Rfam assigns this 84-nucleotide sequence from Nostocales cyanobacterium LEGE 11386 to the family "Photosynthesis regulatory RNA1". Rfam links the family to the GO terms regulation of translation and regulation of photosynthesis. The match comes from Rfam's covariance-model search (64 bits). The family's RNA type in Rfam is small RNA.
RNA sequence: AAUAUUUGCAGAUUUCGGUAUCGGUAUCUCCCAUCGUCAUUUGGACUUCUCCUAUCAGCCUCGGUGAGUUUCGCCGGGGUUUUU
Numbered sequence: 001a002a003u004a005u006u007u008g009c010a011g012a013u014u015u016c017g018g019u020a021u022c023g024g025u026a027u028c029u030c031c032c033a034u035c036g037u038c039a040u041u042u043g044g045a046c047u048u049c050u051c052c053u054a055u056c057a058g059c060c061u062c063g064g065u066g067a068g069u070u071u072c073g074c075c076g077g078g079g080u081u082u083u084u
Base pairs, nucleotide, nucleotide: 058080059079060078061077062076063075064074065073
Dot-bracket structure: .........................................................((((((((.......))))))))....